This 76-nucleotide RNA sequence from Pan troglodytes belongs to the Rfam family "mir-208 microRNA precursor family". The source organism's lineage runs through Eukaryota, Bilateria, Euteleostomi, Hominidae and Pan. On this family, see Chiang et al., Genes Dev 2010: "Mammalian microRNAs: experimental evaluation of novel and previously annotated genes". Gene Ontology terms of the family: miRNA-mediated post-transcriptional gene silencing and RISC complex. Rfam's curators put it in the seed alignment.

RNA sequence: CCUCUCAGGGAAGCUUUUUGCUCGAAUUAUGUUUCUGAUCCGAAUAUAAGACGAACAAAAGGUUUGUCUGAGGGCA
Numbered sequence: 001c002c003u004c005u006c007a008g009g010g011a012a013g014c015u016u017u018u019u020g021c022u023c024g025a026a027u028u029a030u031g032u033u034u035c036u037g038a039u040c041c042g043a044a045u046a047u048a049a050g051a052c053g054a055a056c057a058a059a060a061g062g063u064u065u066g067u068c069u070g071a072g073g074g075c076a
Stems, first nucleotide, its partner, number of pairs: 003073004008068002011065008020056001023053002027049006